Rfam assigns this 182-nucleotide sequence from Sparus aurata to the family "Small nucleolar RNA SNORA81". Its family is annotated with nucleolus and RNA processing in the Gene Ontology. It is annotated as an H/ACA-box small nucleolar RNA. A search with the family's covariance model found it, with a score of 80 bits. The literature on the family includes a 2005 paper in Nucleic Acids Res by Gu et al., "A novel experimental approach for systematic identification of box H/ACA snoRNAs from eukaryotes". Pairs were carried over by alignment from the consensus structure, which was predicted with WAR.
RNA sequence: AACUUCUGCAUUAACAGAAGUCUGCUAUAAUUGUGUGAUCCAGAUUGUAUCUGUUUCAUGCAAUAGUGCUAGCAGAGUAAUGCGUAGAAGGAGAUUAUUGCACACUGUACUGAAACUGAGAUGUUGUUGAACCUCUUUCUUAAUGUUCAUUAGCCUCUGUCUCAAGGUUCAGUGUCACACUC
Numbered sequence: 001a002a003c004u005u006c007u008g009c010a011u012u013a014a015c016a017g018a019a020g021u022c023u024g025c026u027a028u029a030a031u032u033g034u035g036u037g038a039u040c041c042a043g044a045u046u047g048u049a050u051c052u053g054u055u056u057c058a059u060g061c062a063a064u065a066g067u068g069c070u071a072g073c074a075g076a077g078u079a080a081u082g083c084g085u086a087g088a089a090g091g092a093g094a095u096u097a098u099u100g101c102a103c104a105c106u107g108u109a110c111u112g113a114a115a116c117u118g119a120g121a122u123g124u125u126g127u128u129g130a131a132c133c134u135c136u137u138u139c140u141u142a143a144u145g146u147u148c149a150u151u152a153g154c155c156u157c158u159g160u161c162u163c164a165a166g167g168u169u170c171a172g173u174g175u176c177a178c179a180c181u182c
Stems, first nucleotide, its partner, number of pairs: 021076001023074005030067004036058003041053005100176001102175006109168001124153001126151001128149004